[Rfam]
RNA sequence: AUUGCAAAACGUUCUAUCGCUCCGUACUCAAAUGCGGGGAGGAAAGUCCGGGCAACAUAGAGCAUCCUGCUUCCUAACGGGAAGGCGCCCGCAGCGGGCGACAGCAAGUGCCACAGAGAAUAUACCGCCUGCAAGGGUAAGGGUGAAAACGUGAGGUAAGAGCUCACGGCUUUUCCGGGCGAUCGGGAUCGCGGUAAACCUCAGGAGUUGAAAAACCAAAUAGGUUCUGAAAGUGGGGCUGCUCGCUCCCGUGCCGAUCCGUCGGCCGUUAGAAUGGGUAGGUUGAUAAAGCCUGUUAGCAAUAACAGGACAAGAUUAAUGAUAGAAAUUCCCUCAAGGGAACACAGAACCCGGCUUACAGAUUUGCUGCUGUG
Numbered sequence: 001a002u003u004g005c006a007a008a009a010c011g012u013u014c015u016a017u018c019g020c021u022c023c024g025u026a027c028u029c030a031a032a033u034g035c036g037g038g039g040a041g042g043a044a045a046g047u048c049c050g051g052g053c054a055a056c057a058u059a060g061a062g063c064a065u066c067c068u069g070c071u072u073c074c075u076a077a078c079g080g081g082a083a084g085g086c087g088c089c090c091g092c093a094g095c096g097g098g099c100g101a102c103a104g105c106a107a108g109u110g111c112c113a114c115a116g117a118g119a120a121u122a123u124a125c126c127g128c129c130u131g132c133a134a135g136g137g138u139a140a141g142g143g144u145g146a147a148a149a150c151g152u153g154a155g156g157u158a159a160g161a162g163c164u165c166a167c168g169g170c171u172u173u174u175c176c177g178g179g180c181g182a183u184c185g186g187g188a189u190c191g192c193g194g195u196a197a198a199c200c201u202c203a204g205g206a207g208u209u210g211a212a213a214a215a216c217c218a219a220a221u222a223g224g225u226u227c228u229g230a231a232a233g234u235g236g237g238g239c240u241g242c243u244c245g246c247u248c249c250c251g252u253g254c255c256g257a258u259c260c261g262u263c264g265g266c267c268g269u270u271a272g273a274a275u276g277g278g279u280a281g282g283u284u285g286a287u288a289a290a291g292c293c294u295g296u297u298a299g300c301a302a303u304a305a306c307a308g309g310a311c312a313a314g315a316u317u318a319a320u321g322a323u324a325g326a327a328a329u330u331c332c333c334u335c336a337a338g339g340g341a342a343c344a345c346a347g348a349a350c351c352c353g354g355c356u357u358a359c360a361g362a363u364u365u366g367c368u369g370c371u372g373u374g
Stems, first nucleotide, its partner, number of pairs: 002369001004367005010361001011359001012327007020039007044357003048354005053210004062259001065206005070084005085102001086100004103201002108199002110195003125142002127138004150168006173188006214284004224275006292309007